The family of this 74-nucleotide sequence from Thermoflavimicrobium dichotomicum is "tRNA". The match comes from Rfam's covariance-model search (65 bits). Transfer RNA (tRNA) molecules are approximately 80 nucleotides in length.

RNA sequence: GUGCCCUUAGCUCAGCUGGACAGAGCGUCUGACUACGGAUCAGAAGGUCGGGAGUUCGAAUCUUCCAGGGCACA
Numbered sequence: 001g002u003g004c005c006c007u008u009a010g011c012u013c014a015g016c017u018g019g020a021c022a023g024a025g026c027g028u029c030u031g032a033c034u035a036c037g038g039a040u041c042a043g044a045a046g047g048u049c050g051g052g053a054g055u056u057c058g059a060a061u062c063u064u065c066c067a068g069g070g071c072a073c074a
Base pairs, nucleotide, nucleotide: 001073002072003071004070005069006068007067010026011025012024013023028044029043030042031041032040050066051065052064053063054062